RNA: Small nucleolar RNA Z122
Organism: Prunus dulcis
RNA sequence: UUUGGGGAAUGAUGAUUAAACUGUCUCAUAGGGUUCUGCUUUGCUGAGUUAUGUUUUGCACGUCAGUCUGAUCCCAAA
Numbered sequence: 001u002u003u004g005g006g007g008a009a010u011g012a013u014g015a016u017u018a019a020a021c022u023g024u025c026u027c028a029u030a031g032g033g034u035u036c037u038g039c040u041u042u043g044c045u046g047a048g049u050u051a052u053g054u055u056u057u058g059c060a061c062g063u064c065a066g067u068c069u070g071a072u073c074c075c076a077a078a
Base pairs, nucleotide, nucleotide: 001078002077003076004075005074006073007072